[Rfam]
This 169-nucleotide sequence from Trichloromonas acetexigens belongs to the Rfam family "Group II catalytic intron D1-D4-3". Lineage of the source: Bacteria > Pseudomonadati > Thermodesulfobacteriota > Desulfuromonadia > Trichloromonas. A search with the family's covariance model found it, with a score of 75 bits. The base pairs follow the family's consensus structure. Rfam 15.1 lists 4,274 matches to the family in 1,585 species. Rfam links the family to the GO term Group II intron splicing.

RNA sequence: UUGCUGGUAACGGCAGGGUCUGAAGGAAGCGAUAGGAAGUGAACUGCACAUAGCGCAAGCGAACCUGAUUCGGCGCUGCGGGUGGGUGAGCGUGCAAAAUAGCGCGAAGCCCGAUACCUGGUCAGACCCGUGGCGUGAUUGAGGAUGGGGUAGUUCACAGGGAGUCCGA
Numbered sequence: 001u002u003g004c005u006g007g008u009a010a011c012g013g014c015a016g017g018g019u020c021u022g023a024a025g026g027a028a029g030c031g032a033u034a035g036g037a038a039g040u041g042a043a044c045u046g047c048a049c050a051u052a053g054c055g056c057a058a059g060c061g062a063a064c065c066u067g068a069u070u071c072g073g074c075g076c077u078g079c080g081g082g083u084g085g086g087u088g089a090g091c092g093u094g095c096a097a098a099a100u101a102g103c104g105c106g107a108a109g110c111c112c113g114a115u116a117c118c119u120g121g122u123c124a125g126a127c128c129c130g131u132g133g134c135g136u137g138a139u140u141g142a143g144g145a146u147g148g149g150g151u152a153g154u155u156c157a158c159a160g161g162g163a164g165u166c167c168g169a
Base pairs, nucleotide, nucleotide: 001016002015003014004013005012006011030168031167041156042155043154044153045152046151047149049147050146051145064144065143066142068140073136074135075134077132078131079130080129081128082127083126084112085111086110087109090105091104092103093102